[Rfam]
A member of the RNA family "ZMP/ZTP riboswitch aptamer (pfl RNA motif)" from Desulfitobacterium metallireducens, 86 nucleotides long. The base pairs follow the family's consensus structure, which is taken from published work.

Nucleotides: 086
Stems, first nucleotide, its partner, number of pairs: 004057009015046001017074005029042004064080004
Number, partner (000 for none) and nucleotide at each position: 001000a002000a003000a004057c005056g006055g007054u008053u009052a010051c011050a012049u013000g014000a015046c016000u017074g018073g019072c020071g021070g022000a023000a024000a025000u026000a027000u028000u029042g030041u031040a032039g033000a034000c035000u036000u037000a038000a039032c040031u041030a042029c043000g044000a045000u046015g047000a048000a049012g050011u051010g052009u053008a054007a055006c056005u057004g058000g059000a060000g061000a062000a063000a064080u065079g066078c067077c068000g069000a070021c071020c072019g073018c074017c075000u076000g077067g078066g079065c080064g081000a082000u083000u084000a085000u086000u